[Rfam]
RNA sequence: GCCGCGCCUAGGCCGAGGCUGAUCCCCGAGGCCGAAAAUCGGGUUCCCUUACCCGGCUGGCGCGGUACCUAUUUUCAAGG
Numbered sequence: 001g002c003c004g005c006g007c008c009u010a011g012g013c014c015g016a017g018g019c020u021g022a023u024c025c026c027c028g029a030g031g032c033c034g035a036a037a038a039u040c041g042g043g044u045u046c047c048c049u050u051a052c053c054c055g056g057c058u059g060g061c062g063c064g065g066u067a068c069c070u071a072u073u074u075u076c077a078a079g080g
Stems, first nucleotide, its partner, number of pairs: 001066008011033004039056005046080002049077001051075001

The family of this 80-nucleotide sequence from Thauera aromatica is "int-alpA RNA". Rfam classes the family as a small RNA. The match comes from Rfam's covariance-model search (65 bits). The family's consensus secondary structure is taken from published work.